[Rfam]
Rfam assigns this 56-nucleotide RNA sequence from Microvirga tunisiensis to the family "sul1 RNA".
Rfam classes the family as a riboswitch.
NCBI's taxonomy places the organism under Bacteria, Pseudomonadati, Alphaproteobacteria, Hyphomicrobiales, Microvirga.
RNA sequence: UAAGGACCCGGUGCAACUCCGGGUGGCUCUUCCGGCCGCCGAUCCGCCGGACAAUC
Numbered sequence: 001u002a003a004g005g006a007c008c009c010g011g012u013g014c015a016a017c018u019c020c021g022g023g024u025g026g027c028u029c030u031u032c033c034g035g036c037c038g039c040c041g042a043u044c045c046g047c048c049g050g051a052c053a054a055u056c
Base pairs, nucleotide, nucleotide: 006024007023008022009021010020011019031051032050033049034048035047036046